RNA sequence: AACGACGCUGCAGGAGAGACUGGCGGCGCAUGACGCGAUCAUGCGCCGGGCCGGCGCCGACGGAGCAACCACCCCGGAAACUCUCAGGCAAAAGGACUGUAGCGCCGCC
Numbered sequence: 001a002a003c004g005a006c007g008c009u010g011c012a013g014g015a016g017a018g019a020c021u022g023g024c025g026g027c028g029c030a031u032g033a034c035g036c037g038a039u040c041a042u043g044c045g046c047c048g049g050g051c052c053g054g055c056g057c058c059g060a061c062g063g064a065g066c067a068a069c070c071a072c073c074c075c076g077g078a079a080a081c082u083c084u085c086a087g088g089c090a091a092a093a094g095g096a097c098u099g100u101a102g103c104g105c106c107g108c109c
Stems, first nucleotide, its partner, number of pairs: 006104008020054004056089003059085002063083003069077002

Record summary:
Shown here is a 109-nucleotide sequence from Pandoraea terrae, a member of the family "Glycine riboswitch aptamer". It scores 61 bits against the family's covariance model.